Rfam assigns this 303-nucleotide RNA sequence from Solanum lycopersicum to the family "Plant signal recognition particle RNA". Its Rfam clan is "SRP clan". Pairs were carried over by alignment from the consensus structure, which is taken from published work. The literature on the family includes a 2002 paper in Curr Opin Struct Biol by Wild et al., "Towards the structure of the mammalian signal recognition particle". The family has 63 seed sequences and 4,988 matches in Rfam 15.1. Rfam's curators put it in the seed alignment. The source organism's lineage runs through Eukaryota, Spermatophyta, eudicotyledons, Solaneae and Solanum subgen. Lycopersicon.
RNA sequence: GUCGAGCUUAGUAACGUGGGCUUGUAAUCCAAGUGGAGACAUCAAAGUGGUUGAAUAUUGGGCUUUACCAGAAGGUUGGGCUUGGUGGGCUUAGUUCUGGCCUGCCCUGUCCAAGCACAGAGUUGGAUCACGAGGCCCAAAUGAAAAUAUGGGCUUCUUGAUUCCUAAAGUGGGGCGGACCGCAUGAGGCUGGCUUCACAGAGCAGUGAACAGCUCCCGCUCUGUGCAGUGGAAGGAUAAUGGGUCGGUGUCUUAUCAAGUUCAGUAACGCCUAAUGGGUUGCUCCAAUAAACAACCACCUUU
Numbered sequence: 001g002u003c004g005a006g007c008u009u010a011g012u013a014a015c016g017u018g019g020g021c022u023u024g025u026a027a028u029c030c031a032a033g034u035g036g037a038g039a040c041a042u043c044a045a046a047g048u049g050g051u052u053g054a055a056u057a058u059u060g061g062g063c064u065u066u067a068c069c070a071g072a073a074g075g076u077u078g079g080g081c082u083u084g085g086u087g088g089g090c091u092u093a094g095u096u097c098u099g100g101c102c103u104g105c106c107c108u109g110u111c112c113a114a115g116c117a118c119a120g121a122g123u124u125g126g127a128u129c130a131c132g133a134g135g136c137c138c139a140a141a142u143g144a145a146a147a148u149a150u151g152g153g154c155u156u157c158u159u160g161a162u163u164c165c166u167a168a169a170g171u172g173g174g175g176c177g178g179a180c181c182g183c184a185u186g187a188g189g190c191u192g193g194c195u196u197c198a199c200a201g202a203g204c205a206g207u208g209a210a211c212a213g214c215u216c217c218c219g220c221u222c223u224g225u226g227c228a229g230u231g232g233a234a235g236g237a238u239a240a241u242g243g244g245u246c247g248g249u250g251u252c253u254u255a256u257c258a259a260g261u262u263c264a265g266u267a268a269c270g271c272c273u274a275a276u277g278g279g280u281u282g283c284u285c286c287a288a289u290a291a292a293c294a295a296c297c298a299c300c301u302u303u
Stems, first nucleotide, its partner, number of pairs: 001040003004023007028037003044302002047299007056290005061284003066279001068278003073273004078263008087254003091250001097248008106236002110233004115227009125164006132157008141148002165170001172217005183208003190201003